The record is a 216-nucleotide RNA from Nasonia vitripennis, which matches "Small nucleolar RNA U3" in Rfam. Rfam describes the family as follows. Small nucleolar RNAs (snoRNAs) are involved in the processing and modification of rRNA in the nucleolus. By type it is a C/D-box small nucleolar RNA. Gene Ontology terms of the family: nucleolus and RNA processing.
[Rfam]
RNA sequence: AAGAUCAUACUUCACAGGAUCAUUUCUGUAGUAUAUCUUCACAGACUCUCUACCCAAAGUAGGAGUCGAUGCAACCACGAUGAGGAGACGUAGCUCUCCUUCCUGAGCGUGAGGACGACUCGGAAUUCCGACUUUGGUCGGAAUACCAGUCAUCGAUGAUCGUUCACCUUUUGCACUUUGUGCAGAAGGCAUGGGAGGAUGGGCUUUCUGAGUGGC
Numbered sequence: 001a002a003g004a005u006c007a008u009a010c011u012u013c014a015c016a017g018g019a020u021c022a023u024u025u026c027u028g029u030a031g032u033a034u035a036u037c038u039u040c041a042c043a044g045a046c047u048c049u050c051u052a053c054c055c056a057a058a059g060u061a062g063g064a065g066u067c068g069a070u071g072c073a074a075c076c077a078c079g080a081u082g083a084g085g086a087g088a089c090g091u092a093g094c095u096c097u098c099c100u101u102c103c104u105g106a107g108c109g110u111g112a113g114g115a116c117g118a119c120u121c122g123g124a125a126u127u128c129c130g131a132c133u134u135u136g137g138u139c140g141g142a143a144u145a146c147c148a149g150u151c152a153u154c155g156a157u158g159a160u161c162g163u164u165c166a167c168c169u170u171u172u173g174c175a176c177u178u179u180g181u182g183c184a185g186a187a188g189g190c191a192u193g194g195g196a197g198g199a200u201g202g203g204c205u206u207u208c209u210g211a212g213u214g215g216c
Stems, first nucleotide, its partner, number of pairs: 001039005007034005015028005048062002051059001075215004093204004099198006107163003117151004122147002127142005167189001169187007